A member of the RNA family "Plastid-psbA-3 3UTR RNA" from Ziziphus jujuba, 58 nucleotides long. It scores 64 bits against the family's covariance model. On this family, see Richter et al., Plant Commun 2023: "Retrograde signaling in plants: A critical review focusing on the GUN pathway and beyond". The family is grouped with related families in Rfam's "Plastid-psbA 3UTR RNA clan". The source organism's lineage runs through Eukaryota, Spermatophyta, Magnoliopsida, Mesangiospermae and Ziziphus jujuba.
RNA sequence: AAAGGAGCAAUAGCAAACUUCUUGCUAGAACAAGAAAUUGGUUAUUGCUCCUUUAUGU
Numbered sequence: 001a002a003a004g005g006a007g008c009a010a011u012a013g014c015a016a017a018c019u020u021c022u023u024g025c026u027a028g029a030a031c032a033a034g035a036a037a038u039u040g041g042u043u044a045u046u047g048c049u050c051c052u053u054u055a056u057g058u
Stems, first nucleotide, its partner, number of pairs: 001054014019036006